[Rfam]
RNA sequence: UCACAGGAUGGCUAGGGUUCCGGCUGCCGGCACGGCAGCGCUGGUCCGAGAGCCAUCGGCCUGUCGCGGCCUUCACCGCACCAGGCUCCACGGCGGGACAAAAGCCCGGGAGAU
Numbered sequence: 001u002c003a004c005a006g007g008a009u010g011g012c013u014a015g016g017g018u019u020c021c022g023g024c025u026g027c028c029g030g031c032a033c034g035g036c037a038g039c040g041c042u043g044g045u046c047c048g049a050g051a052g053c054c055a056u057c058g059g060c061c062u063g064u065c066g067c068g069g070c071c072u073u074c075a076c077c078g079c080a081c082c083a084g085g086c087u088c089c090a091c092g093g094c095g096g097g098a099c100a101a102a103a104g105c106c107c108g109g110g111a112g113a114u
Stems, first nucleotide, its partner, number of pairs: 007057006015047002020044002022041001023039006058087006089109001091112001095107003
RNA: Guanidine-I riboswitch aptamer
Organism: Rhizobacter gummiphilus